[Rfam]
RNA sequence: CCUGUUCGACGCACGUCACAGGUCGGGAUGUGGAACGCGGGAGACUCUCUCGAGUUCUGAACCAGGAA
Numbered sequence: 001c002c003u004g005u006u007c008g009a010c011g012c013a014c015g016u017c018a019c020a021g022g023u024c025g026g027g028a029u030g031u032g033g034a035a036c037g038c039g040g041g042a043g044a045c046u047c048u049c050u051c052g053a054g055u056u057c058u059g060a061a062c063c064a065g066g067a068a
Stems, first nucleotide, its partner, number of pairs: 001022005025063002032058005
eL15-Euryarchaeota ribosomal protein leader: a 68-nucleotide RNA from Halostagnicola sp. A56.
On this family, see Eckert and Weinberg, BMC Microbiol 2020: "Discovery of 20 novel ribosomal leader candidates in bacteria and archaea".
Rfam classes the family as a cis-regulatory leader.
The source organism's lineage runs through Archaea, Methanobacteriati, Halobacteriales, Natrialbaceae and Halostagnicola.